[Rfam]
RNA sequence: GCCGAGUUGGGUAACACCAGCUUGUAACCCAAGUGGGGGCAAUAGGGUGUUGGGACAUUGCUUUGGCUUGCUAGGAUGGAUUGGUUUGUGCAUUUGGUUGGCUUGCCCACUCCAAGUUGAGAGUUGAGCCAUGGAGCUUAUGCUAAGGCAAAAGCUUCAUGAUUCCUAGAAUGGAGGGCACAGCGUGAGGCUGGCUUCACAGAGCAGCGACUACCUUCUGCUCUCAACAGUGGAGGGAUCACAGGCUACAGCACUACCAGUCCUUGAUUCCUAGUGAGCCUUGGCUACUUGGACCAACACUUUU
Numbered sequence: 001g002c003c004g005a006g007u008u009g010g011g012u013a014a015c016a017c018c019a020g021c022u023u024g025u026a027a028c029c030c031a032a033g034u035g036g037g038g039g040c041a042a043u044a045g046g047g048u049g050u051u052g053g054g055a056c057a058u059u060g061c062u063u064u065g066g067c068u069u070g071c072u073a074g075g076a077u078g079g080a081u082u083g084g085u086u087u088g089u090g091c092a093u094u095u096g097g098u099u100g101g102c103u104u105g106c107c108c109a110c111u112c113c114a115a116g117u118u119g120a121g122a123g124u125u126g127a128g129c130c131a132u133g134g135a136g137c138u139u140a141u142g143c144u145a146a147g148g149c150a151a152a153a154g155c156u157u158c159a160u161g162a163u164u165c166c167u168a169g170a171a172u173g174g175a176g177g178g179c180a181c182a183g184c185g186u187g188a189g190g191c192u193g194g195c196u197u198c199a200c201a202g203a204g205c206a207g208c209g210a211c212u213a214c215c216u217u218c219u220g221c222u223c224u225c226a227a228c229a230g231u232g233g234a235g236g237g238a239u240c241a242c243a244g245g246c247u248a249c250a251g252c253a254c255u256a257c258c259a260g261u262c263c264u265u266g267a268u269u270c271c272u273a274g275u276g277a278g279c280c281u282u283g284g285c286u287a288c289u290u291g292g293a294c295c296a297a298c299a300c301u302u303u304u
Stems, first nucleotide, its partner, number of pairs: 001040003004023007028037003044303010056291002059287002061284002065280002068277009078263008088254003093250001099248007107237002110235005116228009126165003130161010141150003173218005184209003191202003
Plant signal recognition particle RNA: a 304-nucleotide sequence from Lupinus angustifolius. Its Rfam clan is "SRP clan". Rfam classes the family as a non-coding RNA gene. The match comes from Rfam's covariance-model search (251 bits).